[Rfam]
RNA: Small nucleolar RNA SNORD115
RNA sequence: GGGUUGGUGAUGAGAACCUUGUAUUCUUCUGAAGAGAGGUGAUGACUUAAAAACCAUGCUCAAUAGGAUUACACUUAGGCCG
Dot-bracket structure: .(((.(.((..............................................................)).)...))).